[Rfam]
RNA sequence: ACAUCAGUGAGGUGUAUCCUUACCUGUUACCUUAGAAAUAAGGUUUCAGUUCAUGAUGAAUGGAUUCUAUGACUGUAUGAUUAAUUUCUGCAUUUGUUGAGGUAUGCAACACCUUAAUGAAUCCUGUCUGAU
Numbered sequence: 001a002c003a004u005c006a007g008u009g010a011g012g013u014g015u016a017u018c019c020u021u022a023c024c025u026g027u028u029a030c031c032u033u034a035g036a037a038a039u040a041a042g043g044u045u046u047c048a049g050u051u052c053a054u055g056a057u058g059a060a061u062g063g064a065u066u067c068u069a070u071g072a073c074u075g076u077a078u079g080a081u082u083a084a085u086u087u088c089u090g091c092a093u094u095u096g097u098u099g100a101g102g103u104a105u106g107c108a109a110c111a112c113c114u115u116a117a118u119g120a121a122u123c124c125u126g127u128c129u130g131a132u
Stems, first nucleotide, its partner, number of pairs: 024049003029044005072089001075087001077085001078083001093121009

About this RNA: The record is a 132-nucleotide sequence from Triplophysa tibetana, which matches "U8 small nucleolar RNA" in Rfam. By type it is a C/D-box small nucleolar RNA. On this family, see Peculis et al., Gene 2001: "The U8 snoRNA gene family: identification and characterization of distinct, functional U8 genes in Xenopus". The match comes from Rfam's covariance-model search (79 bits). Lineage of the source: Eukaryota > Craniata > Vertebrata > Cypriniphysae > Triplophysa.